The record is a 75-nucleotide RNA from Streptomyces sp. RKND-216, which matches "ASpks TB sRNA" in Rfam.
By type it is an antisense RNA.
Rfam 15.1 lists 9,052 matches to the family in 683 species.
RNA sequence: CUUCACCGACCCGAGCCAGAGCGGUGCGUCACCCGCGCGGGCCUGGCCGUAGGUGGCCAGCAGGGCCUGCGCCUC
Dot-bracket structure: ..............(((.....))).......(....(....(((.(((....))).)))....)...)......